[Rfam]
RNA sequence: ACACUUUACUCGGGGGAAACACGGAAAACGUUCUGUUUUAAAUUGGGAACACGAUUAUCCAUGAUGAUCAUUGUUAAAAAUGGGUGCCACCCUCGGUGUCAUGUCUUCGAUGCCACAGUUCCCAGUCUGGCGGUCCUAUCCUCAAGCGCUGCGACAAGG
Number, nucleotide and partner (000 for none) at each position: 001a074002c073003a072004c000005u070006u000007u000008a000009c000010u000011c000012g000013g000014g000015g060016g059017a058018a000019a056020c000021a000022c053023g052024g000025a000026a000027a000028a000029c000030g000031u000032u000033c000034u000035g000036u000037u000038u000039u000040a000041a000042a000043u000044u000045g000046g000047g000048a000049a000050c000051a000052c023053g022054a000055u000056u019057a000058u017059c016060c015061a000062u000063g000064a000065u000066g000067a000068u000069c000070a005071u000072u003073g002074u001075u000076a000077a000078a000079a000080a000081u000082g000083g000084g000085u000086g000087c000088c000089a000090c000091c000092c000093u000094c151095g150096g149097u148098g147099u146100c000101a000102u000103g000104u000105c000106u000107u000108c000109g000110a000111u000112g000113c133114c132115a000116c129117a128118g127119u000120u000121c000122c000123c000124a000125g000126u000127c118128u117129g116130g000131c000132g114133g113134u000135c000136c000137u000138a000139u000140c000141c000142u000143c000144a000145a000146g099147c098148g097149c096150u095151g094152c000153g000154a000155c000156a000157a000158g000159g000